[Rfam]
Nucleotides: 077
Base pairs, nucleotide, nucleotide: 001069002068003067004066005065006040007039008038009037010036011035012034013033014032
Number, partner (000 for none) and nucleotide at each position: 001069u002068g003067a004066c005065c006040g007039a008038a009037a010036u011035u012034g013033c014032g015000u016000g017000u018000g019000u020000u021000u022000u023000a024000u025000u026000u027000g028000a029000u030000a031000c032014c033013g034012u035011g036010a037009u038008u039007u040006u041000a042000a043000a044000a045000a046000u047000a048000g049000g050000c051000c052000a053000u054000a055000c056000g057000g058000a059000c060000a061000g062000c063000c064000g065005g066004g067003u068002c069001a070000a071000a072000c073000g074000c075000c076000g077000a
A member of the RNA family "Streptococcus sRNA SpF59 (ldcC RNA)", 77 nucleotides long. On this family, see Mann et al., PLoS Pathog 2012: "Control of virulence by small RNAs in Streptococcus pneumoniae".